[Rfam]
A member of the RNA family "c-di-AMP riboswitch aptamer (ydaO/yuaA leader)" from Acidothermus cellulolyticus, 129 nucleotides long.
Taxonomically the source falls in Acidothermus cellulolyticus (Bacteria, Actinomycetes, Acidothermaceae, Acidothermus).
Rfam's curators put it in the seed alignment.
RNA sequence: CGAUCGCCCGCGCCGAAUCCACCAGGAGCCGGGGACCCACCUUCCCCAGGGGUGAAUCCGCGUCCGCGGUAGGGCGACUCUUCCCGCCCGAACCCGUCAGCUAACCCGGUAGGCGCUGAGGAAGAACAG
Numbered sequence: 001c002g003a004u005c006g007c008c009c010g011c012g013c014c015g016a017a018u019c020c021a022c023c024a025g026g027a028g029c030c031g032g033g034g035a036c037c038c039a040c041c042u043u044c045c046c047c048a049g050g051g052g053u054g055a056a057u058c059c060g061c062g063u064c065c066g067c068g069g070u071a072g073g074g075c076g077a078c079u080c081u082u083c084c085c086g087c088c089c090g091a092a093c094c095c096g097u098c099a100g101c102u103a104a105c106c107c108g109g110u111a112g113g114c115g116c117u118g119a120g121g122a123a124g125a126a127c128a129g
Base pairs, nucleotide, nucleotide: 011115012114013113014112018027019026020025028110029109030108031107032106033105038049050095051094052093058069059068060067061066072089073088074087075086
Annotation:
This family represents a conserved RNA structure found upstream of the ydaO and yuaA genes in Bacillus subtilis and related genes in other bacteria. The ydaO/yuaA element is thought to act as a genetic 'off' switch for the ydaO and yuaA genes in its native state.